[Rfam]
RNA sequence: ACCCCUUGGCAAUGGGCAAGGAGACACAUGAUUGGUGGUGCUUCUCUUAUAUCAGUCAGGGGCAAAGCAGACUAUAGUCUUUGUUCAUCCUAGCUUGAUGCCUGUAUUUGUGACCAGAGCUGUUUCAUGCCUGGGGUACAUAA
Numbered sequence: 001a002c003c004c005c006u007u008g009g010c011a012a013u014g015g016g017c018a019a020g021g022a023g024a025c026a027c028a029u030g031a032u033u034g035g036u037g038g039u040g041c042u043u044c045u046c047u048u049a050u051a052u053c054a055g056u057c058a059g060g061g062g063c064a065a066a067g068c069a070g071a072c073u074a075u076a077g078u079c080u081u082u083g084u085u086c087a088u089c090c091u092a093g094c095u096u097g098a099u100g101c102c103u104g105u106a107u108u109u110g111u112g113a114c115c116a117g118a119g120c121u122g123u124u125u126c127a128u129g130c131c132u133g134g135g136g137u138a139c140a141u142a143a
Stems, first nucleotide, its partner, number of pairs: 003062006013054003019048003023042001025040003082138005097131001099129001103127002106125001109122002

The family of this 143-nucleotide RNA from Myotis brandtii is "Small nucleolar RNA SNORA48".
NCBI's taxonomy places the organism under Eukaryota, Chordata, Craniata, Laurasiatheria, Myotis.
About the family: The snoRNA ACA 48 has been identified to guide pseudouridylation of the residue U3797 in the 28S rRNA subunit.
A reference for the family is Ofengand and Bakin (1997), "Mapping to nucleotide resolution of pseudouridine residues in large subunit ribosomal RNAs from representative eukaryotes, prokaryotes, archaebacteria, mitochondria and chloroplasts", J Mol Biol.
Clan: SNORA48 clan.